[Rfam]
Shown here is a 116-nucleotide sequence from Nyssa sinensis, a member of the family "mir-393 microRNA precursor family". Rfam links the family to the GO terms miRNA-mediated post-transcriptional gene silencing and RISC complex. NCBI's taxonomy places the organism under Eukaryota, Embryophyta, Spermatophyta, Nyssaceae, Nyssa.
RNA sequence: GGAGGAGGGAUCCAAAGGGAUCGCAUUGAUCCCAGUUCUCUUUCAUGGCUUGGUUUUGUAUUUUCCUCCAAGUAAAGAUUGAAUUUGGAUCAUGCUAUCCCUUCGGAUUUCUCCUU
Numbered sequence: 001g002g003a004g005g006a007g008g009g010a011u012c013c014a015a016a017g018g019g020a021u022c023g024c025a026u027u028g029a030u031c032c033c034a035g036u037u038c039u040c041u042u043u044c045a046u047g048g049c050u051u052g053g054u055u056u057u058g059u060a061u062u063u064u065c066c067u068c069c070a071a072g073u074a075a076a077g078a079u080u081g082a083a084u085u086u087g088g089a090u091c092a093u094g095c096u097a098u099c100c101c102u103u104c105g106g107a108u109u110u111c112u113c114c115u116u
Base pairs, nucleotide, nucleotide: 002116003115004114005113006112008110009109010108011107012106013105015103016102017101018100019099020098021097023095024094025093026092028091029090030089031088032087